[Rfam]
RNA: Small nucleolar RNA SNORD35
RNA sequence: UGCAGCUGUUUUCCUCACAAUGGUCUUCCAAACCUUGUGGUUAUGACGACGCUGCCAAAUGGCAACACUGAUGCAGUUCC
Numbered sequence: 001u002g003c004a005g006c007u008g009u010u011u012u013c014c015u016c017a018c019a020a021u022g023g024u025c026u027u028c029c030a031a032a033c034c035u036u037g038u039g040g041u042u043a044u045g046a047c048g049a050c051g052c053u054g055c056c057a058a059a060u061g062g063c064a065a066c067a068c069u070g071a072u073g074c075a076g077u078u079c080c
Stems, first nucleotide, its partner, number of pairs: 001075004
Dot-bracket structure: ((((...................................................................)))).....